This 76-nucleotide RNA from Salibacterium salarium belongs to the Rfam family "Group II catalytic intron D1-D4-1". A search with the family's covariance model found it, with a score of 70 bits. Pairs were carried over by alignment from the consensus structure.

RNA sequence: CAACCAGGGCAGUGAUGUCCUGGUGAAUUGUAAGAAGUCAGCCGAAGCCAUAGUAGUCCAUGAAUAGACGAAGGGC
Numbered sequence: 001c002a003a004c005c006a007g008g009g010c011a012g013u014g015a016u017g018u019c020c021u022g023g024u025g026a027a028u029u030g031u032a033a034g035a036a037g038u039c040a041g042c043c044g045a046a047g048c049c050a051u052a053g054u055a056g057u058c059c060a061u062g063a064a065u066a067g068a069c070g071a072a073g074g075g076c
Stems, first nucleotide, its partner, number of pairs: 001025002004023008038045002047076003056069003060065001